[Rfam]
RNA sequence: AAGUUAUCAUGAAAGGUAGAGGGAAUAGACCCGUUGAAGCCUUAGCAACCCUUUUCUGUUUUGUUAGAAAUGAAGGUGCUACAUUCUACUAGCAGUUUUUGUUAGAUAGAUAACAC
Numbered sequence: 001a002a003g004u005u006a007u008c009a010u011g012a013a014a015g016g017u018a019g020a021g022g023g024a025a026u027a028g029a030c031c032c033g034u035u036g037a038a039g040c041c042u043u044a045g046c047a048a049c050c051c052u053u054u055u056c057u058g059u060u061u062u063g064u065u066a067g068a069a070a071u072g073a074a075g076g077u078g079c080u081a082c083a084u085u086c087u088a089c090u091a092g093c094a095g096u097u098u099u100u101g102u103u104a105g106a107u108a109g110a111u112a113a114c115a116c
Stems, first nucleotide, its partner, number of pairs: 003114006013043005021032003026088004044080004049076002051072001053070005084108001089105006

Shown here is a 116-nucleotide RNA from Wenyingzhuangia fucanilytica, a member of the family "SAM riboswitch aptamer (S box leader)".